[Rfam]
RNA: purD RNA motif
RNA sequence: GUGCGAAUGCUCUGUGUUCUGUGACUUCGUUUGAGUGUCUUAAAAAACGCGAGAAGCUGCAGCCUUAAGUGUUUGCCUAGUGGUUUUCUUGACUUUUUGGGGUCAGAUCUUAGCAAACGACCAUUUGGGU
Numbered sequence: 001g002u003g004c005g006a007a008u009g010c011u012c013u014g015u016g017u018u019c020u021g022u023g024a025c026u027u028c029g030u031u032u033g034a035g036u037g038u039c040u041u042a043a044a045a046a047a048c049g050c051g052a053g054a055a056g057c058u059g060c061a062g063c064c065u066u067a068a069g070u071g072u073u074u075g076c077c078u079a080g081u082g083g084u085u086u087u088c089u090u091g092a093c094u095u096u097u098u099g100g101g102g103u104c105a106g107a108u109c110u111u112a113g114c115a116a117a118c119g120a121c122c123a124u125u126u127g128g129g130u
Base pairs, nucleotide, nucleotide: 003076004075005074006073007072008071009070019062020061021060022059023058025056026055027054028053035050036049037048038047089106090105091104092103093102094101095100